[Rfam]
RNA sequence: CUGCGUUCUCAGGGCGGGGUGGAAGUCCCCACCGGCGGUCAGCCGGCCGGCGCGGUCCUUCGGGGUCGGGCCGGCCGUCAAGCCCGCGAGCGCCCGGCAGCCGUCCUGGUGGCCGCCGGGGUCAGCAGAUCCGGUGCGAUUCCGGAGCCGACGGUCACAGUCCGGAUGAAAGAGAACCGCG
Numbered sequence: 001c002u003g004c005g006u007u008c009u010c011a012g013g014g015c016g017g018g019g020u021g022g023a024a025g026u027c028c029c030c031a032c033c034g035g036c037g038g039u040c041a042g043c044c045g046g047c048c049g050g051c052g053c054g055g056u057c058c059u060u061c062g063g064g065g066u067c068g069g070g071c072c073g074g075c076c077g078u079c080a081a082g083c084c085c086g087c088g089a090g091c092g093c094c095c096g097g098c099a100g101c102c103g104u105c106c107u108g109g110u111g112g113c114c115g116c117c118g119g120g121g122u123c124a125g126c127a128g129a130u131c132c133g134g135u136g137c138g139a140u141u142c143c144g145g146a147g148c149c150g151a152c153g154g155u156c157a158c159a160g161u162c163c164g165g166a167u168g169a170a171a172g173a174g175a176a177c178c179g180c181g
Stems, first nucleotide, its partner, number of pairs: 005177006017029003031161002033150002035087004090126002130146005152164003

Annotation: The record is a 181-nucleotide RNA from Sphaerotilus sulfidivorans, which matches "FMN riboswitch aptamer (RFN element)" in Rfam. Lineage of the source: Bacteria > Pseudomonadati > Betaproteobacteria > Burkholderiales > Sphaerotilus.